[Rfam]
Nucleotides: 084
Stems, first nucleotide, its partner, number of pairs: 012037002017032006040078004047074002049070003056064002
Number, partner (000 for none) and nucleotide at each position: 001000g002000a003000g004000u005000g006000a007000c008000a009000a010000a011000g012037g013036c014000a015000a016000a017032c018031u019030u020029a021028c022027u023000u024000a025000a026000a027022g028021g029020u030019a031018a032017g033000g034000a035000c036013g037012c038000a039000a040078a041077g042076c043075u044000a045000u046000a047074g048073g049070g050069g051068c052000u053000a054000a055000c056064g057063a058000g059000u060000a061000c062000a063057u064056c065000u066000a067000u068051g069050c070049c071000a072000g073048c074047c075043a076042g077041u078040u079000g080000c081000c082000u083000a084000c
A member of the RNA family "c-di-GMP-I riboswitch aptamer" from Halalkalibacter suaedae, 84 nucleotides long. The family's consensus secondary structure is taken from published work. About the family: GEMM was predicted in a large-scale screen for bacterial structured RNA regulatory elements. Genes associated with GEMM are involved in a diverse array of functions, including chemotaxis regulation, signal transduction, secretion and chitin.